[Rfam]
RNA sequence: GGGAAGUGAUGAAACGGAGAUGAGGGGGCGUGUGUGGCUGGAGUGUGUGUGAGGGGGGAAGGGCCCCAGAGCCGGGCUGGGGGGGUGUGUGUGGGUGUGAGGGGGCUCUCGUGGGGGCACUGAUGCCAGUGCUGAGGCCGGAGUGCAUCUGAGGCGUGUUGGGCACCUCGGGGGCCCCUCUGCAACACUGCCGGUGAUUAAAGCCCCAGACGAGCCCACCAGGAGUGCCCAGGCAGCCCAAAUCUCUCCCAGGGUCCCUGCUGACCCUGUGAUCUGAUCUCA
Dot-bracket structure: ((((........................................................................................................................................................(((((((..((....))..)).....)))))..........................................................................................)))).
Small Cajal body-specific RNA 7: a 282-nucleotide RNA sequence from Mystacornis crossleyi. The match comes from Rfam's covariance-model search (83 bits).